RNA sequence: CUGGGCACAAUGAUGAAAUAACAUUAUUCUUUUAUGAGAUCCAUAGAUCUGUGAGUAACACUUAAUUCUAGUCCUUUUCAUUCUGAGUGUCCU
Numbered sequence: 001c002u003g004g005g006c007a008c009a010a011u012g013a014u015g016a017a018a019u020a021a022c023a024u025u026a027u028u029c030u031u032u033u034a035u036g037a038g039a040u041c042c043a044u045a046g047a048u049c050u051g052u053g054a055g056u057a058a059c060a061c062u063u064a065a066u067u068c069u070a071g072u073c074c075u076u077u078u079c080a081u082u083c084u085g086a087g088u089g090u091c092c093u
Base pairs, nucleotide, nucleotide: 004091005090006089007088008087010081011080012079013078039048040047041046

Shown here is a 93-nucleotide sequence from Cocos nucifera, a member of the family "Small nucleolar RNA Z162". By type it is a C/D-box small nucleolar RNA. For this family Rfam cites "The high diversity of snoRNAs in plants: identification and comparative study of 120 snoRNA genes from Oryza sativa" (Chen et al., Nucleic Acids Res, 2003). The family has 9 seed sequences and 146 matches in Rfam 15.1. Pairs were carried over by alignment from the consensus structure, which was predicted with PFOLD. Lineage of the source: Eukaryota > Embryophyta > Magnoliopsida > Arecaceae > Cocos.